[Rfam]
RNA sequence: GUUCCCUAUGAUGAUUUAAAAUCAAUACCAUGCUAAUGUAUAUCUGAUAAUUUUUUUAUUUGAUUUAUAAGUGAUUUGCUGAGGGAGCA
Numbered sequence: 001g002u003u004c005c006c007u008a009u010g011a012u013g014a015u016u017u018a019a020a021a022u023c024a025a026u027a028c029c030a031u032g033c034u035a036a037u038g039u040a041u042a043u044c045u046g047a048u049a050a051u052u053u054u055u056u057u058a059u060u061u062g063a064u065u066u067a068u069a070a071g072u073g074a075u076u077u078g079c080u081g082a083g084g085g086a087g088c089a
Stems, first nucleotide, its partner, number of pairs: 001088007
Shown here is an 89-nucleotide RNA sequence from Arabidopsis lyrata, a member of the family "Small nucleolar RNA snoR53Y". Gene Ontology terms of the family: nucleolus and RNA processing. The source organism's lineage runs through Eukaryota, Mesangiospermae, Pentapetalae, rosids and Arabidopsis lyrata. A search with the family's covariance model found it, with a score of 51 bits. The literature on the family includes a 2001 paper in RNA by Brown et al., "Multiple snoRNA gene clusters from Arabidopsis".